[Rfam]
RNA sequence: UGUCGAAGCUCCAUCUACAAAUGGAUAAGACUUUGGUCUUAGUAUGCGUGAGUUCUUGAAAAUAAAAUAAAAAAAGGAGCAAUAGCCAAUUUCUUGUUCUAUCGAGAGGAUUGGUAUUGCUCCUUUUUU
Numbered sequence: 001u002g003u004c005g006a007a008g009c010u011c012c013a014u015c016u017a018c019a020a021a022u023g024g025a026u027a028a029g030a031c032u033u034u035g036g037u038c039u040u041a042g043u044a045u046g047c048g049u050g051a052g053u054u055c056u057u058g059a060a061a062a063u064a065a066a067a068u069a070a071a072a073a074a075a076g077g078a079g080c081a082a083u084a085g086c087c088a089a090u091u092u093c094u095u096g097u098u099c100u101a102u103c104g105a106g107a108g109g110a111u112u113g114g115u116a117u118u119g120c121u122c123c124u125u126u127u128u129u
Stems, first nucleotide, its partner, number of pairs: 010025005073126012088111001091108005
Plastid-psbA-1 3UTR RNA: a 129-nucleotide RNA sequence.
The sequence is in the family's curated seed alignment.